[Rfam]
RNA sequence: CUAUUAGCAUCGUGAGGUAUUGAGAUGGGGAAGCAGAAGUCAGCAGACGCCAUAGUAGGCUUGUCACCGCAAGCUGAAGGGC
Dot-bracket structure: (..((((.(((....))).))))...)...........(((....)))(((......((((((......))))))....)))
RNA: Group II catalytic intron D1-D4-1